This 69-nucleotide RNA sequence belongs to the Rfam family "S15-Flavobacteria ribosomal protein leader". The sequence is in the family's curated seed alignment. On this family, see Eckert and Weinberg, BMC Microbiol 2020: "Discovery of 20 novel ribosomal leader candidates in bacteria and archaea". Its Rfam clan is "Ribosomal Protein S15 Leader clan".
[Rfam]
RNA sequence: UACCUUUGCAACCGAAUUAGGAAAAUCCUAAAUUCAUACAUAAAAAUCAUUUAAUAUAAUAUUGGAAUG
Numbered sequence: 001u002a003c004c005u006u007u008g009c010a011a012c013c014g015a016a017u018u019a020g021g022a023a024a025a026u027c028c029u030a031a032a033u034u035c036a037u038a039c040a041u042a043a044a045a046a047u048c049a050u051u052u053a054a055u056a057u058a059a060u061a062u063u064g065g066a067a068u069g
Base pairs, nucleotide, nucleotide: 014035015034016033017032018030019029020028021027